[Rfam]
Nucleotides: 054
Stems, first nucleotide, its partner, number of pairs: 013043001014041003020036006
Number, partner (000 for none) and nucleotide at each position: 001000u002000u003000c004000a005000c006000a007000c008000a009000u010000g011000a012000c013043u014041g015040u016039a017000a018000g019000u020036c021035g022034c023033u024032u025031u026000g027000g028000u029000u030000a031025a032024a033023a034022g035021c036020g037000u038000c039016u040015g041014c042000u043013a044000a045000a046000u047000u048000u049000g050000u051000u052000a053000u054000a
A member of the RNA family "UnaL2 LINE 3' element" from Hucho hucho, 54 nucleotides long. The match comes from Rfam's covariance-model search (63 bits). On this family, see Baba et al., RNA 2004: "Solution structure of an RNA stem-loop derived from the 3' conserved region of eel LINE UnaL2". The eel long interspersed element (LINE) UnaL2 and its partner short interspersed element (SINE) share a conserved 3' tail containing a stem-loop that is critical for their retrotransposition. It is annotated as a cis-regulatory element. Taxonomically the source falls in Hucho (Eukaryota, Metazoa, Neopterygii, Teleostei). Rfam links the family to the GO term transposition, RNA-mediated.